Annotation: This 68-nucleotide sequence from Paulinella micropora belongs to the Rfam family "mir-33 microRNA precursor family". NCBI's taxonomy places the organism under Eukaryota, Imbricatea, Silicofilosea, Euglyphida, Paulinella. It scores 50 bits against the family's covariance model. On this family, see Li et al., BMC Genomics 2009: "Direct sequencing and expression analysis of a large number of miRNAs in Aedes aegypti and a multi-species survey of novel mosquito miRNAs".
RNA sequence: CUCUAAUACAAUGUAGAGGCAUUAUAUAUAUGUAUAUAUAUAUAUAAUGCCUCUACAUUGUAGUAGAG
Dot-bracket structure: ((((.(((((((((((..(.(((((((..............))))))).)..)))))))))).)))))
Numbered sequence: 001c002u003c004u005a006a007u008a009c010a011a012u013g014u015a016g017a018g019g020c021a022u023u024a025u026a027u028a029u030a031u032g033u034a035u036a037u038a039u040a041u042a043u044a045u046a047a048u049g050c051c052u053c054u055a056c057a058u059u060g061u062a063g064u065a066g067a068g
Stems, first nucleotide, its partner, number of pairs: 001068004006064001007062010019050001021048007